[Rfam]
The family of this 88-nucleotide RNA sequence from Spiribacter curvatus is "t44 RNA".
RNA sequence: GGCAAUUCAAUCUAAAACCACACAUGGUCCGACACGGCUGGCGGGGUGCCCCUGGAGGUUGUCAGCUGCGGGUCCAUGGAGGCUCAAC
Numbered sequence: 001g002g003c004a005a006u007u008c009a010a011u012c013u014a015a016a017a018c019c020a021c022a023c024a025u026g027g028u029c030c031g032a033c034a035c036g037g038c039u040g041g042c043g044g045g046g047u048g049c050c051c052c053u054g055g056a057g058g059u060u061g062u063c064a065g066c067u068g069c070g071g072g073u074c075c076a077u078g079g080a081g082g083c084u085c086a087a088c
Base pairs, nucleotide, nucleotide: 023078024077025076026075027074029072030071035068036067037066038065039064040063041062042061043060048059049058050057

About the family: This family consists of a number of bacterial RNA genes of between 135 and 170 bases in length. The t44 gene has been identified in several species of enteric bacteria but homologs have also been identified in Pseudomonas and Coxiella species. The t44 gene is found between the map and rpsB genes in all species in the full alignment apart from Shigella flexneri. The function of this RNA is unknown.
Rfam classes the family as a small RNA.
The family's consensus secondary structure was predicted with LocARNA.
The match comes from Rfam's covariance-model search (62 bits).